Background
Rfam assigns this 127-nucleotide sequence from Erinaceus europaeus to the family "Small nucleolar RNA SNORA27". It scores 127 bits against the family's covariance model. The family has 24 seed sequences and 819 matches in Rfam 15.1. From the family's description: ACA27 is a member of the H/ACA class of snoRNA that guide the sites of modification of uridines to pseudouridines. The pairing is the family consensus, mapped onto this sequence. Clan: SNORA27 clan. The organism belongs to Erinaceus, within Eukaryota. The family's RNA type in Rfam is H/ACA-box small nucleolar RNA.
RNA sequence: UCUCUCCCUUUCGCUUUGCCAAUUGGACUUCUGUCUUUAUUGGUCAUUCAAGUGGGACUAAGGAAAUACCCUUUUAAAAUUCAGGCAAACUGGGUGUUAGUUUUGUAUCUAGUCAGAGGAAACAAAA
Numbered sequence: 001u002c003u004c005u006c007c008c009u010u011u012c013g014c015u016u017u018g019c020c021a022a023u024u025g026g027a028c029u030u031c032u033g034u035c036u037u038u039a040u041u042g043g044u045c046a047u048u049c050a051a052g053u054g055g056g057a058c059u060a061a062g063g064a065a066a067u068a069c070c071c072u073u074u075u076a077a078a079a080u081u082c083a084g085g086c087a088a089a090c091u092g093g094g095u096g097u098u099a100g101u102u103u104u105g106u107a108u109c110u111a112g113u114c115a116g117a118g119g120a121a122a123c124a125a126a127a
Base pairs, nucleotide, nucleotide: 033058034057035056036055040051041050042049043048070119071118072117073116074115082105083103084102085101086100088098089097090096